[Rfam]
RNA sequence: UGAUGUGAAGGUGAUCUGACUGCAACACCUGUCACCCCAUUGAUUGUCAGGGUUCAUUCAGCCGAUCUGGCUGGCUAGUUGGGUGUCCCCUUCCUCCCCCACUUCUUCAAGCACCUCCCUCCUGAAGCUGUGUGUUUGAUCAAAGAGGAUGACCUUCCUCAGUAGAGACUUUCCCCAUUCAUCAGCCAAGGGUAUAUGGUAGCUGCACUCCCCUGCUAGAACCUCCAAACAGGCUAUGAUUCUGUGACAUUGAGUCUAGAAUAAAGUCUAGAUCUUUUUUAUUAGUCAUAUAACAUUUUUUUUAUAUUUUUUAU
Numbered sequence: 001u002g003a004u005g006u007g008a009a010g011g012u013g014a015u016c017u018g019a020c021u022g023c024a025a026c027a028c029c030u031g032u033c034a035c036c037c038c039a040u041u042g043a044u045u046g047u048c049a050g051g052g053u054u055c056a057u058u059c060a061g062c063c064g065a066u067c068u069g070g071c072u073g074g075c076u077a078g079u080u081g082g083g084u085g086u087c088c089c090c091u092u093c094c095u096c097c098c099c100c101a102c103u104u105c106u107u108c109a110a111g112c113a114c115c116u117c118c119c120u121c122c123u124g125a126a127g128c129u130g131u132g133u134g135u136u137u138g139a140u141c142a143a144a145g146a147g148g149a150u151g152a153c154c155u156u157c158c159u160c161a162g163u164a165g166a167g168a169c170u171u172u173c174c175c176c177a178u179u180c181a182u183c184a185g186c187c188a189a190g191g192g193u194a195u196a197u198g199g200u201a202g203c204u205g206c207a208c209u210c211c212c213c214u215g216c217u218a219g220a221a222c223c224u225c226c227a228a229a230c231a232g233g234c235u236a237u238g239a240u241u242c243u244g245u246g247a248c249a250u251u252g253a254g255u256c257u258a259g260a261a262u263a264a265a266g267u268c269u270a271g272a273u274c275u276u277u278u279u280u281a282u283u284a285g286u287c288a289u290a291u292a293a294c295a296u297u298u299u300u301u302u303u304a305u306a307u308u309u310u311u312u313a314u
Stems, first nucleotide, its partner, number of pairs: 002107002005102003010097002013093002018090001025086007033078001035074002037070003042067004046062002119167003123138003127135002140162001147158003202267003209260001211259001215255002224249001229245005290314004295307002298304001
The family of this 314-nucleotide RNA sequence from Bambusicola thoracicus is "7SK RNA".
About the family: 7SK was discovered as an abundant small nuclear RNA in the mid-70s but a possible function has only recently been suggested.
A reference for the family is Wassarman and Steitz (1991), "Structural analyses of the 7SK ribonucleoprotein (RNP), the most abundant human small RNP of unknown function", Mol Cell Biol.
Pairs were carried over by alignment from the consensus structure, which is taken from published work.